[Rfam]
RNA sequence: GCCGCCCUUUAAUCACGUUCCUUGCCUCCCCGGGCCGCGGCUGACCCAGACAGGAGGCUGAAUAAUCCGUAAGGAGCAAUUCGAUG
Numbered sequence: 001g002c003c004g005c006c007c008u009u010u011a012a013u014c015a016c017g018u019u020c021c022u023u024g025c026c027u028c029c030c031c032g033g034g035c036c037g038c039g040g041c042u043g044a045c046c047c048a049g050a051c052a053g054g055a056g057g058c059u060g061a062a063u064a065a066u067c068c069g070u071a072a073g074g075a076g077c078a079a080u081u082c083g084a085u086g
Base pairs, nucleotide, nucleotide: 017077018076019075020074021073022072023071024058025057026056027055028054029053032047033046034045
The record is an 86-nucleotide RNA from Cronobacter sakazakii, which matches "RpsF leader" in Rfam. It is one of the family's seed sequences. Pairs were carried over by alignment from the consensus structure. Taxonomically the source falls in Cronobacter sakazakii (Bacteria, Pseudomonadota, Enterobacterales, Cronobacter).